[Rfam]
RNA sequence: AAUAGGAGAAUUACAAAUCAGAUUUUUUUUCUCCUGAUUUUUAACCUUUUUCUCUUGAAAAAAUCUAAGUUCAAUUAAAAAUGCUAAAAAUCAGGAAGAAAUAUUUGAUUUGUCAUUCUCCUAUU
Number, nucleotide and partner (000 for none) at each position: 001a125002a124003u123004a122005g121006g120007a119008g118009a117010a116011u115012u000013a113014c112015a111016a110017a109018u108019c107020a106021g105022a104023u103024u000025u101026u100027u099028u000029u097030u000031c000032u096033c095034c094035u093036g092037a091038u090039u089040u088041u087042u000043a085044a000045c000046c000047u081048u080049u079050u078051u000052c000053u000054c000055u000056u000057g000058a000059a000060a000061a000062a000063a000064u000065c000066u000067a000068a000069g000070u000071u000072c000073a000074a000075u000076u000077a000078a050079a049080a048081a047082u000083g000084c000085u043086a000087a041088a040089a039090a038091u037092c036093a035094g034095g033096a032097a029098g000099a027100a026101a025102u000103a023104u022105u021106u020107g019108a018109u017110u016111u015112g014113u013114c000115a011116u010117u009118c008119u007120c006121c005122u004123a003124u002125u001